[Rfam]
RNA sequence: AAUAAAUAUCGGUAGGUAAGGCUCCCACAGGGAUACGGGCUGCUGCCGCGAAAAGUGGAGACACUGUAAGCAGGUCAACAGGCCACAUCGAAAAGUAAGGUGUGUUCUAACGCAGUUUCAUCGCCCUCUGAAGCUAAAGCUUGAACGAAAUAUUUUUAUC
Number, nucleotide and partner (000 for none) at each position: 001a000002a000003u000004a000005a156006a155007u000008a153009u152010c000011g146012g000013u098014a000015g141016g140017u139018a000019a000020g135021g134022c133023u000024c000025c000026c130027a129028c000029a127030g126031g125032g124033a000034u000035a000036c000037g000038g000039g116040c115041u114042g113043c112044u000045g000046c073047c000048g071049c070050g000051a000052a000053a000054a065055g064056u063057g062058g000059a000060g000061a000062c057063a056064c055065u054066g000067u000068a000069a000070g049071c048072a000073g046074g000075u000076c000077a000078a000079c000080a000081g107082g106083c000084c104085a000086c000087a101088u100089c099090g000091a000092a000093a000094a000095g000096u000097a000098a013099g089100g088101u087102g000103u000104g084105u000106u082107c081108u000109a000110a000111c000112g043113c042114a041115g040116u039117u000118u000119c000120a000121u000122c000123g000124c032125c031126c030127u029128c000129u027130g026131a000132a000133g022134c021135u020136a000137a000138a000139g017140c016141u015142u000143g000144a000145a000146c011147g000148a000149a000150a000151u000152a009153u008154u000155u006156u005157u000158a000159u000160c000
The family of this 160-nucleotide RNA sequence from Eubacterium sp. CAG:180 is "M-box riboswitch aptamer (ykoK leader)". The pairing is the family consensus, mapped onto this sequence. On this family, see Barrick et al., Proc Natl Acad Sci U S A 2004: "New RNA motifs suggest an expanded scope for riboswitches in bacterial genetic control".